[Rfam]
Rfam assigns this 73-nucleotide RNA sequence from Mytilus coruscus to the family "HDV ribozyme from F. prausnitzii". On this family, see Webb et al., Science 2009: "Widespread occurrence of self-cleaving ribozymes". Its family is annotated with catalytic activity in the Gene Ontology. Pairs were carried over by alignment from the consensus structure, which is taken from published work. The match comes from Rfam's covariance-model search (47 bits). The organism belongs to Mytilus, within Eukaryota.
RNA sequence: CCUGCUCGAAUUCCUACUUCCACCUCCCCGUGGUGAGCAGGGGUAACAGAUUAUAUAUCUGGCGAACGGAAGA
Number, nucleotide and partner (000 for none) at each position: 001c041002c040003u039004g038005c037006u036007c035008g000009a000010a000011u000012u000013c000014c000015u000016a000017c000018u000019u000020c000021c000022a034023c033024c032025u000026c000027c000028c000029c000030g000031u000032g024033g023034u022035g007036a006037g005038c004039a003040g002041g001042g000043g000044u000045a000046a000047c061048a060049g059050a058051u057052u000053a000054u000055a000056u000057a051058u050059c049060u048061g047062g000063c000064g000065a000066a000067c000068g000069g000070a000071a000072g000073a000